[Rfam]
RNA: Iron response element I
Organism: Mus musculus
RNA sequence: CUGUGUCUUGUUUCAACAGUGUUUGGACUAAACAG
Numbered sequence: 001c002u003g004u005g006u007c008u009u010g011u012u013u014c015a016a017c018a019g020u021g022u023u024u025g026g027a028c029u030a031a032a033c034a035g
Stems, first nucleotide, its partner, number of pairs: 001035004006031001010028001012027005017021001